Record summary
A member of the RNA family "Nuclear RNase P" from Apis mellifera, 290 nucleotides long. The organism belongs to Apis, within Eukaryota.
[Rfam]
RNA sequence: GCAGCUUCAAUCUAGCGGAAGGGGUAUACAAGCAAGGUACAUAGUUACCACAAUUUCACCUCGGGAAGGUCUGAGAUUAAACCAAUAAACAUUCUAGACGGAUGAUACCAUAAGGGUAUGUACGGGAACCAGAAAUAGCUUUACGUUGCCAAUUAGCCCAGGAAACUUCAUUUGAAGUAGAGGUACUUGGAAACGAAAAGAUGGAAACCCGUAUGGUUCGCUGUUUGAGUACAAUCCGCAAGCCAGAAAAUUUAUCUUCUGGAACUCAAUUCAGACUAAUCUGAGGUUGC
Numbered sequence: 001g002c003a004g005c006u007u008c009a010a011u012c013u014a015g016c017g018g019a020a021g022g023g024g025u026a027u028a029c030a031a032g033c034a035a036g037g038u039a040c041a042u043a044g045u046u047a048c049c050a051c052a053a054u055u056u057c058a059c060c061u062c063g064g065g066a067a068g069g070u071c072u073g074a075g076a077u078u079a080a081a082c083c084a085a086u087a088a089a090c091a092u093u094c095u096a097g098a099c100g101g102a103u104g105a106u107a108c109c110a111u112a113a114g115g116g117u118a119u120g121u122a123c124g125g126g127a128a129c130c131a132g133a134a135a136u137a138g139c140u141u142u143a144c145g146u147u148g149c150c151a152a153u154u155a156g157c158c159c160a161g162g163a164a165a166c167u168u169c170a171u172u173u174g175a176a177g178u179a180g181a182g183g184u185a186c187u188u189g190g191a192a193a194c195g196a197a198a199a200g201a202u203g204g205a206a207a208c209c210c211g212u213a214u215g216g217u218u219c220g221c222u223g224u225u226u227g228a229g230u231a232c233a234a235u236c237c238g239c240a241a242g243c244c245a246g247a248a249a250a251u252u253u254a255u256c257u258u259c260u261g262g263a264a265c266u267c268a269a270u271u272c273a274g275a276c277u278a279a280u281c282u283g284a285g286g287u288u289g290c
Base pairs, nucleotide, nucleotide: 001290002289003288004287007284008283009282012242013241015239016238017237018236021062022061023060024059025058036049037048038047039046071274072273073272074271075270080218081217082216083215090104091103092102093101094100105119106118107117108116109115120214121213122212123211124210125209126208140200141199142198243262244261245260246259247258248257